[Rfam]
RNA sequence: UGCAACACCCAUCAAAGCAGUAGUUCCCCACCCUGGAGCUACUUUACCAUAUUCUGAAUGA
Numbered sequence: 001u002g003c004a005a006c007a008c009c010c011a012u013c014a015a016a017g018c019a020g021u022a023g024u025u026c027c028c029c030a031c032c033c034u035g036g037a038g039c040u041a042c043u044u045u046a047c048c049a050u051a052u053u054c055u056g057a058a059u060g061a
Base pairs, nucleotide, nucleotide: 017045019043020042021041022040023039024038025037026036027035

Plastid-psbN 5UTR RNA: a 61-nucleotide sequence from Lupinus albus. The base pairs follow the family's consensus structure, which was predicted with LocARNA. From the family's description: Plastid psbN is a non-coding RNA (ncRNA) recognised in plastids. It was reported as a conserved 11 stem-loop in the prime untranslated region (5UTR) of psbN genes.